A member of the RNA family "mir-50 microRNA precursor family" from Panagrolaimus sp. PS1159, 76 nucleotides long. NCBI's taxonomy places the organism under Eukaryota, Opisthokonta, Bilateria, Protostomia, Panagrolaimus. The family is grouped with related families in Rfam's "mir-50 clan".

[Rfam]
RNA sequence: AAGGAUUUGAUAUGUCUGGUAUUCUUGGGUUGUGUAUUUAAUAUCAACCAGCAUGCCUGACGUAUCCGAAUUCUUG
Dot-bracket structure: .......(((((((((.(((((.....((((..............))))...))))).)))))))).)........
Numbered sequence: 001a002a003g004g005a006u007u008u009g010a011u012a013u014g015u016c017u018g019g020u021a022u023u024c025u026u027g028g029g030u031u032g033u034g035u036a037u038u039u040a041a042u043a044u045c046a047a048c049c050a051g052c053a054u055g056c057c058u059g060a061c062g063u064a065u066c067c068g069a070a071u072u073c074u075u076g
Stems, first nucleotide, its partner, number of pairs: 008068001009066008018057005028049004